c-di-AMP riboswitch aptamer (ydaO/yuaA leader): a 173-nucleotide RNA from Metallococcus carri. The match comes from Rfam's covariance-model search (50 bits). For this family Rfam cites "New RNA motifs suggest an expanded scope for riboswitches in bacterial genetic control" (Barrick et al., Proc Natl Acad Sci U S A, 2004).

RNA sequence: UCCUGGCAAGCACAGAUCCGCACGGCAGGAGCGGGGGACCCAACCUUCGGUCGACCACGGUCGGCCUUGGGGCGAAGUCCGCGAGCGCCACUUCCCCGACGGUGGCGCCCGAGGACCGGGUAGACCCCUCACCCGAGCCCGACAGCUCACCUCGUAGGCGUAAGAGAGGUAUG
Numbered sequence: 001u002c003c004u005g006g007c008a009a010g011c012a013c014a015g016a017u018c019c020g021c022a023c024g025g026c027a028g029g030a031g032c033g034g035g036g037g038a039c040c041c042a043a044c045c046u047u048c049g050g051u052c053g054a055c056c057a058c059g060g061u062c063g064g065c066c067u068u069g070g071g072g073c074g075a076a077g078u079c080c081g082c083g084a085g086c087g088c089c090a091c092u093u094c095c096c097c098g099a100c101g102g103u104g105g106c107g108c109c110c111g112a113g114g115a116c117c118g119g120g121u122a123g124a125c126c127c128c129u130c131a132c133c134c135g136a137g138c139c140c141g142a143c144a145g146c147u148c149a150c151c152u153c154g155u156a157g158g159c160g161u162a163a164g165a166g167a168g169g170u171a172u173g
Stems, first nucleotide, its partner, number of pairs: 001030005031155006041069002070140003078115003118134004